[Rfam]
Shown here is a 74-nucleotide RNA from Alligator sinensis, a member of the family "Mammalian CPEB3 ribozyme". Gene Ontology term of the family: RNA nuclease activity. A search with the family's covariance model found it, with a score of 47 bits. The family's consensus secondary structure is taken from published work.

RNA sequence: ACAAAUUUUUGAGGCCACAGCAAAAGCGCUCAUGGCACAGCCUGUCAGAUUCCAAGCAAUCUGUGAAUUCUGCU
Numbered sequence: 001a002c003a004a005a006u007u008u009u010u011g012a013g014g015c016c017a018c019a020g021c022a023a024a025a026g027c028g029c030u031c032a033u034g035g036c037a038c039a040g041c042c043u044g045u046c047a048g049a050u051u052c053c054a055a056g057c058a059a060u061c062u063g064u065g066a067a068u069u070c071u072g073c074u
Base pairs, nucleotide, nucleotide: 013042014041015040019074020073021072022071024069025068026038028036046063047062048061049060050059051058